[Rfam]
RNA sequence: UCGAGUCCGGUGCCGCACAGCGGCCCCGGAGCCGGGGACCCAACCUUUCUGGGGUGAAUCCCGUGCGAGGCGCGAUCGUGGGACACGGUCGUGAGGAGCACGGGUAGGGCAAGUCGUGCCCGAACCCGUCAGCUCACCCGGUAGGCGUACGACACCAAGAGG
Numbered sequence: 001u002c003g004a005g006u007c008c009g010g011u012g013c014c015g016c017a018c019a020g021c022g023g024c025c026c027c028g029g030a031g032c033c034g035g036g037g038a039c040c041c042a043a044c045c046u047u048u049c050u051g052g053g054g055u056g057a058a059u060c061c062c063g064u065g066c067g068a069g070g071c072g073c074g075a076u077c078g079u080g081g082g083a084c085a086c087g088g089u090c091g092u093g094a095g096g097a098g099c100a101c102g103g104g105u106a107g108g109g110c111a112a113g114u115c116g117u118g119c120c121c122g123a124a125c126c127c128g129u130c131a132g133c134u135c136a137c138c139c140g141g142u143a144g145g146c147g148u149a150c151g152a153c154a155c156c157a158a159g160a161g162g
Stems, first nucleotide, its partner, number of pairs: 001145002006030005031142006041051002052127003060104007107121004
RNA: c-di-AMP riboswitch aptamer (ydaO/yuaA leader)
Organism: Nocardioides antri